[Rfam]
Shown here is a 97-nucleotide sequence from Equus caballus, a member of the family "mir-9058 microRNA precursor family". Gene Ontology terms of the family: RISC complex and miRNA-mediated post-transcriptional gene silencing.
RNA sequence: GUGGCUGGUGGCUGGGUGCCUUCUACUGGUGCUGUGCAGAGGCUUUCCCUAAGGCUUCUGUGAGCCUGUAGGGUUUCCCCUUAGGCUACUAAGCUGG
Numbered sequence: 001g002u003g004g005c006u007g008g009u010g011g012c013u014g015g016g017u018g019c020c021u022u023c024u025a026c027u028g029g030u031g032c033u034g035u036g037c038a039g040a041g042g043c044u045u046u047c048c049c050u051a052a053g054g055c056u057u058c059u060g061u062g063a064g065c066c067u068g069u070a071g072g073g074u075u076u077c078c079c080c081u082u083a084g085g086c087u088a089c090u091a092a093g094c095u096g097g
Stems, first nucleotide, its partner, number of pairs: 002096005007086001009084001010082002014080003018076001021073006028067002031065003036061004041056006